[Rfam]
RNA sequence: AUCUUCUCAUGAGCUCCUCUCUGUCCAUUCAGUGACUGUGCACGGAUUCGCACGAGAAGUAGAGUAACUAUCACAUUUAAACGGGUCUCUCCCCUUAAUGAAUAAACGGGAGUUACCUAUGUCUGAUGUGAGACAACU
Numbered sequence: 001a002u003c004u005u006c007u008c009a010u011g012a013g014c015u016c017c018u019c020u021c022u023g024u025c026c027a028u029u030c031a032g033u034g035a036c037u038g039u040g041c042a043c044g045g046a047u048u049c050g051c052a053c054g055a056g057a058a059g060u061a062g063a064g065u066a067a068c069u070a071u072c073a074c075a076u077u078u079a080a081a082c083g084g085g086u087c088u089c090u091c092c093c094c095u096u097a098a099u100g101a102a103u104a105a106a107c108g109g110g111a112g113u114u115a116c117c118u119a120u121g122u123c124u125g126a127u128g129u130g131a132g133a134c135a136a137c138u
Base pairs, nucleotide, nucleotide: 003059004058005057006056007055008054013051014050015046016045017044021038023036024035025034071131072130073129074128075127076126089112090111091110092109093108